The family of this 55-nucleotide sequence from Solanum commersonii is "MIR8008 microRNA precursor family". NCBI's taxonomy places the organism under Eukaryota, Tracheophyta, Magnoliopsida, Solanaceae, Solanum.
RNA sequence: AUUUCCAGAAAAGCGAUAGACAGGGUCCUUUUGUCCAUUGCUUUUCUGGGAUUUU
Numbered sequence: 001a002u003u004u005c006c007a008g009a010a011a012a013g014c015g016a017u018a019g020a021c022a023g024g025g026u027c028c029u030u031u032u033g034u035c036c037a038u039u040g041c042u043u044u045u046c047u048g049g050g051a052u053u054u055u
Base pairs, nucleotide, nucleotide: 001053003051004050005049006048007047008046009045010044011043012042013041014040015039016038017037019035020034021033

A search with the family's covariance model found it, with a score of 66 bits.